[Rfam]
The family of this 162-nucleotide sequence from Alicyclobacillus hesperidum is "glmS glucosamine-6-phosphate activated ribozyme aptamer".
This entry contains a glucosamine-6-phosphate activated ribozyme that is found in the mRNA for GlmS. GlmS is an enzyme that uses fructose-6-phosphate and glutamine to generate glucosamine-6-phosphate. The ribozyme catalyses self cleavage of the glmS mRNA that is thought to regulate GlmS activity.
The base pairs follow the family's consensus structure, which is taken from published work.
Lineage of the source: Bacteria > Bacillota > Bacilli > Caryophanales > Alicyclobacillus.
RNA sequence: CAUCGUCCAACAGCGCCUGGACUGCAGCUGCAAAUGCGGUGCAGUUGACGCGGAGGAGGUUGGCGAAGCAUUCGGCGGGUGCCUCCCGGCGUUUUCCGAUCACGCCGCAAGCAAAGCCUGAAAACCAUCGGGCGACCGGUGCGACAAGGGUGAGCAGAUCGG
Numbered sequence: 001c002a003u004c005g006u007c008c009a010a011c012a013g014c015g016c017c018u019g020g021a022c023u024g025c026a027g028c029u030g031c032a033a034a035u036g037c038g039g040u041g042c043a044g045u046u047g048a049c050g051c052g053g054a055g056g057a058g059g060u061u062g063g064c065g066a067a068g069c070a071u072u073c074g075g076c077g078g079g080u081g082c083c084u085c086c087c088g089g090c091g092u093u094u095u096c097c098g099a100u101c102a103c104g105c106c107g108c109a110a111g112c113a114a115a116g117c118c119u120g121a122a123a124a125c126c127a128u129c130g131g132g133c134g135a136c137c138g139g140u141g142c143g144a145c146a147a148g149g150g151u152g153a154g155c156a157g158a159u160c161g162g
Base pairs, nucleotide, nucleotide: 020046021045022044023043024042025041026040028038055086056085057084058083059082064074065073066072087107088106089105090104091103092102112154115151126141127140128139129138130137131136